A member of the RNA family "Small nucleolar RNA snoR104" from Rhododendron simsii, 120 nucleotides long. The family's consensus secondary structure was predicted with WAR. On this family, see Marker et al., Curr Biol 2002: "Experimental RNomics: identification of 140 candidates for small non-messenger RNAs in the plant Arabidopsis thaliana". Gene Ontology terms of the family: RNA processing and nucleolus.
RNA sequence: GGGGGGCAUCCACAAGCUGUGAUGUUAUCUGAUACAAUCUUCUUACAUAAAAGGUUUGUAAUUUCCUGCUUGUGGGACUUGAGAAGGUUCAACACAAGUCUCAAAUUACAAGAUACAUGA
Numbered sequence: 001g002g003g004g005g006g007c008a009u010c011c012a013c014a015a016g017c018u019g020u021g022a023u024g025u026u027a028u029c030u031g032a033u034a035c036a037a038u039c040u041u042c043u044u045a046c047a048u049a050a051a052a053g054g055u056u057u058g059u060a061a062u063u064u065c066c067u068g069c070u071u072g073u074g075g076g077a078c079u080u081g082a083g084a085a086g087g088u089u090c091a092a093c094a095c096a097a098g099u100c101u102c103a104a105a106u107u108a109c110a111a112g113a114u115a116c117a118u119g120a
Stems, first nucleotide, its partner, number of pairs: 001030003005026006055113003068099007075090001077088003